Overview:
Shown here is a 141-nucleotide RNA sequence from Ceratopteris richardii, a member of the family "small nucleolar RNA snoR134". A reference for the family is Chen and Wu (2009), "Mining small RNA sequencing data: a new approach to identify small nucleolar RNAs in Arabidopsis", Nucleic Acids Res. Its family is annotated with nucleolus and RNA processing in the Gene Ontology. Rfam 15.1 lists 792 matches to the family in 228 species. It is annotated as an H/ACA-box small nucleolar RNA. The base pairs follow the family's consensus structure, which was predicted with RNAalifold. NCBI's taxonomy places the organism under Eukaryota, Streptophyta, Embryophyta, Euphyllophyta, Ceratopteris. It scores 41 bits against the family's covariance model.
[Rfam]
RNA sequence: AAGCACGAUCAAUUACCCCGGGCUGUCUCUGCUAUUCCCGUCUGAGGUGAUGCCCUUAUGUCGUGCGACAUGCAGCGUGCUCUGUGUUGCAGGCUCUGUUUAUAAAUGCAGUGGCUUUGUGUCAAAUGCAGCACUACACUU
Numbered sequence: 001a002a003g004c005a006c007g008a009u010c011a012a013u014u015a016c017c018c019c020g021g022g023c024u025g026u027c028u029c030u031g032c033u034a035u036u037c038c039c040g041u042c043u044g045a046g047g048u049g050a051u052g053c054c055c056u057u058a059u060g061u062c063g064u065g066c067g068a069c070a071u072g073c074a075g076c077g078u079g080c081u082c083u084g085u086g087u088u089g090c091a092g093g094c095u096c097u098g099u100u101u102a103u104a105a106a107u108g109c110a111g112u113g114g115c116u117u118u119g120u121g122u123c124a125a126a127u128g129c130a131g132c133a134c135u136a137c138a139c140u141u
Base pairs, nucleotide, nucleotide: 003066004065005064006063007062008061010060020055021054022053023052026050027049029047030046077134078133079132080131081130083128085124086123088121089120090119091118092117093116096111097110098109